A member of the RNA family "mir-9256 microRNA precursor family" from Pipistrellus kuhlii, 67 nucleotides long.

[Rfam]
RNA sequence: GUUUACACUAAGUGGCCAGAUUAUUAUGAUCUCUGAAAGCAUAAUAAUCUGGCCACUCAGUGUACUU
Numbered sequence: 001g002u003u004u005a006c007a008c009u010a011a012g013u014g015g016c017c018a019g020a021u022u023a024u025u026a027u028g029a030u031c032u033c034u035g036a037a038a039g040c041a042u043a044a045u046a047a048u049c050u051g052g053c054c055a056c057u058c059a060g061u062g063u064a065c066u067u
Stems, first nucleotide, its partner, number of pairs: 004064006011057007019049010
The family's consensus secondary structure was predicted with RNAalifold. The family has 8 seed sequences and 31,772 matches in Rfam 15.1. NCBI's taxonomy places the organism under Eukaryota, Gnathostomata, Euteleostomi, Boreoeutheria, Pipistrellus. It scores 82 bits against the family's covariance model. Gene Ontology terms of the family: RISC complex and miRNA-mediated post-transcriptional gene silencing.